[Rfam]
RNA sequence: UCCUCCUGACAAUGGACAAAGAGAUACCUUGUUGGUGGUGUUGUUCUUAGUCAGGAGCAGAGCAGAUGGCCAUCCUAGCUUGAUUUGUGGCUUGAGGGCCUAACCUGUCUUAUCCCUAGGACUCAUAA
Numbered sequence: 001u002c003c004u005c006c007u008g009a010c011a012a013u014g015g016a017c018a019a020a021g022a023g024a025u026a027c028c029u030u031g032u033u034g035g036u037g038g039u040g041u042u043g044u045u046c047u048u049a050g051u052c053a054g055g056a057g058c059a060g061a062g063c064a065g066a067u068g069g070c071c072a073u074c075c076u077a078g079c080u081u082g083a084u085u086u087g088u089g090g091c092u093u094g095a096g097g098g099c100c101u102a103a104c105c106u107g108u109c110u111u112a113u114c115c116c117u118a119g120g121a122c123u124c125a126u127a128a
Stems, first nucleotide, its partner, number of pairs: 001059001003057006013049003021046001023042006068122001070120002082116001088112003093107002096104001
Notes: Small nucleolar RNA SNORA48: a 128-nucleotide RNA sequence from Mus spicilegus. Rfam links the family to the GO terms nucleolus and RNA processing. It scores 51 bits against the family's covariance model. Clan: SNORA48 clan. NCBI's taxonomy places the organism under Eukaryota, Muroidea, Muridae, Mus, Mus. The family's RNA type in Rfam is H/ACA-box small nucleolar RNA. From the family's description: The snoRNA ACA 48 has been identified to guide pseudouridylation of the residue U3797 in the 28S rRNA subunit. The family has 24 seed sequences and 2,109 matches in Rfam 15.1.